[Rfam]
RNA sequence: CUCGCGGGCCGGGCCCCUCUGGCGCUUCCAGUGUAGCGCGAUGUCGGACCGCAUCG
Number, nucleotide and partner (000 for none) at each position: 001c000002u000003c000004g000005c000006g050007g049008g000009c047010c046011g045012g044013g000014c000015c000016c000017c000018u000019c000020u000021g000022g039023c038024g037025c036026u035027u000028c033029c000030a000031g000032u000033g028034u000035a026036g025037c024038g023039c022040g000041a000042u000043g000044u012045c011046g010047g009048a000049c007050c006051g000052c000053a000054u000055c000056g000
Notes:
The record is a 56-nucleotide RNA from Phenylobacterium parvum, which matches "terC RNA" in Rfam. By type it is a cis-regulatory element.